[Rfam]
RNA: Small nucleolar RNA R64/Z200 family
Organism: Salvia splendens
RNA sequence: AUUUUGCUGUGAUGAUUAAUGAAAUAAAUUCACAUGUCAGACUUCAGAGAUUAUUUAUAAUCAAUGAGAAGACUAUUUCAUGAUUCCUGAGCAUAUC
Numbered sequence: 001a002u003u004u005u006g007c008u009g010u011g012a013u014g015a016u017u018a019a020u021g022a023a024a025u026a027a028a029u030u031c032a033c034a035u036g037u038c039a040g041a042c043u044u045c046a047g048a049g050a051u052u053a054u055u056u057a058u059a060a061u062c063a064a065u066g067a068g069a070a071g072a073c074u075a076u077u078u079c080a081u082g083a084u085u086c087c088u089g090a091g092c093a094u095a096u097c
Base pairs, nucleotide, nucleotide: 003095005093006092007091049062050061051060052059